[Rfam]
RNA sequence: GGAAGGCAAGCGUGUCCGGUGGCGCGGCUGGACUUCAAAUUCAGUUGGGGGCGGCAGCCGCUCCCGGGUAGGUUCGACUCCUACUGCCUUCC
Numbered sequence: 001g002g003a004a005g006g007c008a009a010g011c012g013u014g015u016c017c018g019g020u021g022g023c024g025c026g027g028c029u030g031g032a033c034u035u036c037a038a039a040u041u042c043a044g045u046u047g048g049g050g051g052c053g054g055c056a057g058c059c060g061c062u063c064c065c066g067g068g069u070a071g072g073u074u075c076g077a078c079u080c081c082u083a084c085u086g087c088c089u090u091c092c
Stems, first nucleotide, its partner, number of pairs: 001092008011026006027045006047065005069083004
Rfam assigns this 92-nucleotide RNA from Pseudomonas flexibilis to the family "Selenocysteine transfer RNA".